RNA sequence: UGAUACCAGGGUCAAAUAGAUAUGUUUUUCAUGCUUGCAUGAAAAAAUAUAUCGACUUGACCCGAAAAACACCGAAAAGGAGCCAUUUUUCGCAGAAAAAUGGCUCCUUUUCGGUGUUUUAGGCUUUCGAGAGCGCGAAGUGCGGAGCAAUCCGUGUCUCA
Number, nucleotide and partner (000 for none) at each position: 001u161002g160003a159004u000005a157006c156007c000008a000009g000010g062011g061012u060013c059014a000015a000016a000017u055018a000019g053020a052021u051022a050023u049024g048025u047026u046027u045028u044029u042030c041031a040032u039033g038034c000035u000036u000037g000038c033039a032040u031041g030042a029043a000044a028045a027046a026047a025048u024049a023050u022051a021052u020053c019054g000055a017056c000057u000058u000059g013060a012061c011062c010063c000064g000065a000066a120067a119068a118069a117070c116071a115072c114073c113074g000075a000076a110077a109078a108079g107080g000081a000082g000083c103084c102085a101086u100087u099088u098089u097090u096091c095092g000093c000094a000095g091096a090097a089098a088099a087100a086101u085102g084103g083104c000105u000106c000107c079108u078109u077110u076111u000112c000113g073114g072115u071116g070117u069118u068119u067120u066121a000122g153123g152124c000125u150126u149127u000128c147129g000130a000131g000132a000133g143134c142135g141136c140137g000138a000139a000140g136141u135142g134143c133144g000145g000146a000147g128148c000149a126150a125151u000152c123153c122154g000155u000156g006157u005158c000159u003160c002161a001